[Rfam]
RNA sequence: AUUCCAGAAGUGGCAUAACAACGUGCCACUCCGGCAGCAAGCGAAGGUGUCAUUGGCACCCGUGGUAUAGUCUCCCCGGUUAUACCACGUUAUUUUUUU
Numbered sequence: 001a002u003u004c005c006a007g008a009a010g011u012g013g014c015a016u017a018a019c020a021a022c023g024u025g026c027c028a029c030u031c032c033g034g035c036a037g038c039a040a041g042c043g044a045a046g047g048u049g050u051c052a053u054u055g056g057c058a059c060c061c062g063u064g065g066u067a068u069a070g071u072c073u074c075c076c077c078g079g080u081u082a083u084a085c086c087a088c089g090u091u092a093u094u095u096u097u098u099u
Stems, first nucleotide, its partner, number of pairs: 009030008034042002046060006061089012

The record is a 99-nucleotide RNA sequence from Vibrio azureus, which matches "Translational regulator of tfoXVC" in Rfam. The organism belongs to Vibrio azureus, within Bacteria. A search with the family's covariance model found it, with a score of 101 bits. The base pairs follow the family's consensus structure, which was predicted with WAR. The literature on the family includes a 2011 paper in J Bacteriol by Yamamoto et al., "Identification of a chitin-induced small RNA that regulates translation of the tfoX gene, encoding a positive regulator of natural competence in Vibrio cholerae".